A member of the RNA family "Plastid-psbN 5UTR RNA" from Lactuca sativa, 60 nucleotides long.

RNA sequence: UGCGACACCCAUCAAAGGGGUCGUUCCCCACCCAUGAACUACUUUACCAUUUUCGAAUUC
Numbered sequence: 001u002g003c004g005a006c007a008c009c010c011a012u013c014a015a016a017g018g019g020g021u022c023g024u025u026c027c028c029c030a031c032c033c034a035u036g037a038a039c040u041a042c043u044u045u046a047c048c049a050u051u052u053u054c055g056a057a058u059u060c
Stems, first nucleotide, its partner, number of pairs: 017045005023039004
Plastid psbN is a non-coding RNA (ncRNA) recognised in plastids. A search with the family's covariance model found it, with a score of 62 bits. For this family Rfam cites "Retrograde signaling in plants: A critical review focusing on the GUN pathway and beyond" (Richter et al., Plant Commun, 2023). By type it is a cis-regulatory element.